[Rfam]
RNA: MIR396 microRNA precursor family
RNA sequence: CUUGGUAUUCUUCCACAGCUUUCUUGAACUGCGACUUUGUCGUAGAUCGUUGGUUGUCGUCGUCGUCAAUGGUGCAUCCAUGUGCGCCGAACACAACCUAUUUCGUUGCGGUUCAAGAAAGCUGUGGGAAGAUACAGACA
Number, nucleotide and partner (000 for none) at each position: 001c000002u000003u137004g000005g135006u134007a133008u000009u000010c000011u000012u000013c127014c126015a125016c000017a123018g122019c121020u120021u119022u118023c000024u116025u115026g114027a113028a000029c111030u110031g109032c108033g107034a106035c105036u000037u000038u000039g000040u000041c000042g000043u000044a000045g000046a000047u000048c000049g000050u000051u000052g000053g000054u000055u000056g000057u000058c000059g000060u000061c000062g000063u000064c000065g000066u000067c000068a000069a000070u000071g000072g000073u000074g000075c000076a000077u000078c000079c000080a000081u000082g000083u000084g000085c000086g000087c000088c000089g000090a000091a000092c000093a000094c000095a000096a000097c000098c000099u000100a000101u000102u000103u000104c000105g035106u034107u033108g032109c031110g030111g029112u000113u027114c026115a025116a024117g000118a022119a021120a020121g019122c018123u017124g000125u015126g014127g013128g000129a000130a000131g000132a000133u007134a006135c005136a000137g003138a000139c000140a000